[Rfam]
RNA sequence: CGAGUUGGCCGAGAUAAUCGCUGCCUGUGACGAAAAUGAUCAGGGGGAGGAAAGUCCGGGCUCCACAGGGCAGGGUGCCAGUUAACGACUGGGGGGCGCGAGCCUACGACAAGUGCAACAGAGAGCAAACCGCCGAUGGCCUUCUUGUAAGGAUCAGGUAAGGGUGAAAGGGUGCGGUAAGAGCGCACCGCGCGGCUGGUAACAGUCCGUGGCACGGUAAACUCCACCCGGAGCAAGACCAAAUAGGGUUCUAUCAUUUUAAAUAAUGAACGCGUGGCCCACGUGAGAACCGGGUAGGUUGCUUGAGCCUAAGAGCGAUUUUAGGCCUAGACGAAUGAUUAUCACUUUCUUCGGAAAGCACAGAACCCGGCUUAUUGGCCGACUCACCAA
Numbered sequence: 001c002g003a004g005u006u007g008g009c010c011g012a013g014a015u016a017a018u019c020g021c022u023g024c025c026u027g028u029g030a031c032g033a034a035a036a037u038g039a040u041c042a043g044g045g046g047g048a049g050g051a052a053a054g055u056c057c058g059g060g061c062u063c064c065a066c067a068g069g070g071c072a073g074g075g076u077g078c079c080a081g082u083u084a085a086c087g088a089c090u091g092g093g094g095g096g097c098g099c100g101a102g103c104c105u106a107c108g109a110c111a112a113g114u115g116c117a118a119c120a121g122a123g124a125g126c127a128a129a130c131c132g133c134c135g136a137u138g139g140c141c142u143u144c145u146u147g148u149a150a151g152g153a154u155c156a157g158g159u160a161a162g163g164g165u166g167a168a169a170g171g172g173u174g175c176g177g178u179a180a181g182a183g184c185g186c187a188c189c190g191c192g193c194g195g196c197u198g199g200u201a202a203c204a205g206u207c208c209g210u211g212g213c214a215c216g217g218u219a220a221a222c223u224c225c226a227c228c229c230g231g232a233g234c235a236a237g238a239c240c241a242a243a244u245a246g247g248g249u250u251c252u253a254u255c256a257u258u259u260u261a262a263a264u265a266a267u268g269a270a271c272g273c274g275u276g277g278c279c280c281a282c283g284u285g286a287g288a289a290c291c292g293g294g295u296a297g298g299u300u301g302c303u304u305g306a307g308c309c310u311a312a313g314a315g316c317g318a319u320u321u322u323a324g325g326c327c328u329a330g331a332c333g334a335a336u337g338a339u340u341a342u343c344a345c346u347u348u349c350u351u352c353g354g355a356a357a358g359c360a361c362a363g364a365a366c367c368c369g370g371c372u373u374a375u376u377g378g379c380c381g382a383c384u385c386a387c388c389a390a
Base pairs, nucleotide, nucleotide: 002385003384004383005382006381007380008379009378010377011375013343014342015341016340017339018338019337021047022046024044025043026042027041052373053372054371056370057369058368059367060366061233062232063231064230068280069279070278071277073229074228075227076226077225078092079091080090081089082088093107094105095104096103097102108224109223113222114221115218116217130163131162132159133158134157137156138155139154141152142151171189172188173187174186175185176184190213191211192210193209194208195207196205197204198203237300238299239298240297247291248290249289250288251287252286271285272284273283274282275281307326308325309324310323311322312321313320314319